This 112-nucleotide RNA from Mycobacterium talmoniae belongs to the Rfam family "TPP riboswitch aptamer (THI element)". The match comes from Rfam's covariance-model search (58 bits).
[Rfam]
RNA sequence: ACCAGACCACGCGGGAGCGCGCGUCGAGUGCGCUGAGAGGACGGCUGGGGCGCCGUCGACCGUACGAACCUGACCGGGUAAUGCCGGCGUAGGGAGAUGAGAUGACCGAGUU
Numbered sequence: 001a002c003c004a005g006a007c008c009a010c011g012c013g014g015g016a017g018c019g020c021g022c023g024u025c026g027a028g029u030g031c032g033c034u035g036a037g038a039g040g041a042c043g044g045c046u047g048g049g050g051c052g053c054c055g056u057c058g059a060c061c062g063u064a065c066g067a068a069c070c071u072g073a074c075c076g077g078g079u080a081a082u083g084c085c086g087g088c089g090u091a092g093g094g095a096g097a098u099g100a101g102a103u104g105a106c107c108g109a110g111u112u
Stems, first nucleotide, its partner, number of pairs: 007099001010096001011063004019033005040057005069093004074087004
Dot-bracket structure: ......(..(((((....(((((.....)))))......(((((........)))))..)))).....((((.((((......))))..))))..)..).............